[Rfam]
Shown here is a 161-nucleotide RNA sequence from Planifilum fulgidum, a member of the family "c-di-AMP riboswitch aptamer (ydaO/yuaA leader)".
Gene Ontology terms of the family: cyclic-di-AMP binding and regulation of gene expression.
It scores 105 bits against the family's covariance model.
NCBI's taxonomy places the organism under Bacteria, Bacillati, Bacilli, Caryophanales, Planifilum.

RNA sequence: CCAUUUCAAUCGCUGAAUCCCACUCUGGGAGCGGGGGAACCACUCGCGGCUUCAUGGCCUUGCCUGCAAGCCGCACGGGGUGAAUCCUGGAUUCGUCCAGGUAGGGUGACUCUCAGCACCCGAACCCGUCAGCUAACCUCGUAAGCGUUUUGAGAGGGAGG
Number, nucleotide and partner (000 for none) at each position: 001c000002c000003a000004u000005u000006u000007c000008a000009a000010u000011c147012g146013c145014u144015g000016a000017a000018u030019c029020c028021c000022a000023c000024u000025c000026u000027g000028g020029g019030a018031g142032c141033g140034g139035g138036g137037g000038a000039a000040c000041c077042a000043c000044u000045c000046g000047c000048g000049g000050c000051u000052u000053c000054a000055u000056g000057g000058c000059c000060u000061u000062g000063c000064c000065u000066g000067c000068a000069a000070g000071c000072c000073g000074c000075a000076c000077g041078g127079g126080g125081u000082g000083a000084a000085u000086c101087c100088u099089g098090g000091a000092u000093u000094c000095g000096u000097c000098c089099a088100g087101g086102u000103a000104g121105g120106g119107u118108g000109a000110c000111u000112c000113u000114c000115a000116g000117c000118a107119c106120c105121c104122g000123a000124a000125c080126c079127c078128g000129u000130c000131a000132g000133c000134u000135a000136a000137c036138c035139u034140c033141g032142u031143a000144a014145g013146c012147g011148u000149u000150u000151u000152g000153a000154g000155a000156g000157g000158g000159a000160g000161g000